The family of this 130-nucleotide sequence from Myotis lucifugus is "Small nucleolar RNA SNORA5". It scores 101 bits against the family's covariance model. The base pairs follow the family's consensus structure, which was predicted with RNAfold. From the family's description: ACA5 is a member of the H/ACA class of snoRNA that guide the sites of modification of uridines to pseudouridines. Taxonomically the source falls in Myotis (Eukaryota, Gnathostomata, Boreoeutheria, Yangochiroptera). The family is grouped with related families in Rfam's "SNORA5 clan".

RNA sequence: UGCAGCCGUGUCAAAUUCGGUGCCUGCCCACCCAUGGCACGCACUGGCCCAGAAGGCUGCCACAGAAACACUGUGGUGCAUGGGCCCUGAUCCCCUCUGCUGGGCCUCAGGGAUAAGUUAAAAAAAAAUA
Numbered sequence: 001u002g003c004a005g006c007c008g009u010g011u012c013a014a015a016u017u018c019g020g021u022g023c024c025u026g027c028c029c030a031c032c033c034a035u036g037g038c039a040c041g042c043a044c045u046g047g048c049c050c051a052g053a054a055g056g057c058u059g060c061c062a063c064a065g066a067a068a069c070a071c072u073g074u075g076g077u078g079c080a081u082g083g084g085c086c087c088u089g090a091u092c093c094c095c096u097c098u099g100c101u102g103g104g105c106c107u108c109a110g111g112g113a114u115a116a117g118u119u120a121a122a123a124a125a126a127a128a129u130a
Stems, first nucleotide, its partner, number of pairs: 002060004018046006025039004074121001085112005
Dot-bracket structure: .((((............((((((.((((.......)))).))))))..........)))).............(..........(((((..................)))))........).........